[Rfam]
RNA sequence: GUUAAAGCGGGUGAAAAGCCCGCUCGCCGUAAGCCCAAGGUUUCCUGCUCUACGUUCAUCGGAGCAGGGUGAGUCGGCCCCUAAGGCCAGGCUGAGAAGCGUAGUCGAUGGGAAGCAGAUUAAUAUUUCUGCACCAUGUGCAAGUGCGAUGGGGGGACGGAGUGCGAAAGAUCAUCCGGGUGUUGGAUGUCCCGGUUUGUGAGUGUAGAAGGCCGACAGGCAAAUCCGUCGGCGGAUCUUCGAGACAAAGCAUCGAGGUUCUACGGAACCGAAGUGAUCGGAAGUGCUUCCAGGAAAAGCCUCUAAGCUUCAGCUUGUACAUGACCGUACCGUAAACCGACACUGGUGGGCGAGUUGAAUAUACUCAGGCGCU
Numbered sequence: 001g002u003u004a005a006a007g008c009g010g011g012u013g014a015a016a017a018g019c020c021c022g023c024u025c026g027c028c029g030u031a032a033g034c035c036c037a038a039g040g041u042u043u044c045c046u047g048c049u050c051u052a053c054g055u056u057c058a059u060c061g062g063a064g065c066a067g068g069g070u071g072a073g074u075c076g077g078c079c080c081c082u083a084a085g086g087c088c089a090g091g092c093u094g095a096g097a098a099g100c101g102u103a104g105u106c107g108a109u110g111g112g113a114a115g116c117a118g119a120u121u122a123a124u125a126u127u128u129c130u131g132c133a134c135c136a137u138g139u140g141c142a143a144g145u146g147c148g149a150u151g152g153g154g155g156g157a158c159g160g161a162g163u164g165c166g167a168a169a170g171a172u173c174a175u176c177c178g179g180g181u182g183u184u185g186g187a188u189g190u191c192c193c194g195g196u197u198u199g200u201g202a203g204u205g206u207a208g209a210a211g212g213c214c215g216a217c218a219g220g221c222a223a224a225u226c227c228g229u230c231g232g233c234g235g236a237u238c239u240u241c242g243a244g245a246c247a248a249a250g251c252a253u254c255g256a257g258g259u260u261c262u263a264c265g266g267a268a269c270c271g272a273a274g275u276g277a278u279c280g281g282a283a284g285u286g287c288u289u290c291c292a293g294g295a296a297a298a299g300c301c302u303c304u305a306a307g308c309u310u311c312a313g314c315u316u317g318u319a320c321a322u323g324a325c326c327g328u329a330c331c332g333u334a335a336a337c338c339g340a341c342a343c344u345g346g347u348g349g350g351c352g353a354g355u356u357g358a359a360u361a362u363a364c365u366c367a368g369g370c371g372c373u
Stems, first nucleotide, its partner, number of pairs: 006024006025371004033351004039331002044068006053061002075327003080111002085106003089102001091100003115132005135323011146308002151303004159290004170279005176195005198252001203246002208241003212233006219227002257270005337346002353365003
Description: Bacterial large subunit ribosomal RNA: a 373-nucleotide part of an RNA from Sutterella sp. AM11-39. A reference for the family is Cannone et al. (2002), "The comparative RNA web (CRW) site: an online database of comparative sequence and structure information for ribosomal, intron, and other RNAs", BMC Bioinformatics. The organism belongs to Sutterella, within Bacteria. The base pairs follow the family's consensus structure, which is taken from published work.